The record is a 137-nucleotide RNA sequence from Furnarius figulus, which matches "Small nucleolar RNA SNORA15" in Rfam. A reference for the family is Huttenhofer et al. (2001), "RNomics: an experimental approach that identifies 201 candidates for novel, small, non-messenger RNAs in mouse", EMBO J. Rfam 15.1 lists 974 matches to the family in 624 species. The match comes from Rfam's covariance-model search (76 bits). Its family is annotated with RNA processing and nucleolus in the Gene Ontology. Lineage of the source: Eukaryota > Bilateria > Sarcopterygii > Sauria > Furnarius. ACA15 is a member of the H/ACA class of snoRNA that guide the sites of modification of uridines to pseudouridines.
[Rfam]
RNA sequence: GCAUGGCUGAAUUCUGCACUAGCUUUCCUCAGUAGCUAAUGCAGUCAGACACCAUGCCAGAGCAAAUUCCUUUUUCACUCUGCUUGGUGUGCUUUCCAUGUGGGAAGGGGGCAUGCCCUUGGAAGGGGAAUACAAAA
Numbered sequence: 001g002c003a004u005g006g007c008u009g010a011a012u013u014c015u016g017c018a019c020u021a022g023c024u025u026u027c028c029u030c031a032g033u034a035g036c037u038a039a040u041g042c043a044g045u046c047a048g049a050c051a052c053c054a055u056g057c058c059a060g061a062g063c064a065a066a067u068u069c070c071u072u073u074u075u076c077a078c079u080c081u082g083c084u085u086g087g088u089g090u091g092c093u094u095u096c097c098a099u100g101u102g103g104g105a106a107g108g109g110g111g112c113a114u115g116c117c118c119u120u121g122g123a124a125g126g127g128g129a130a131u132a133c134a135a136a137a
Stems, first nucleotide, its partner, number of pairs: 001057006014044005067130003070126006086117011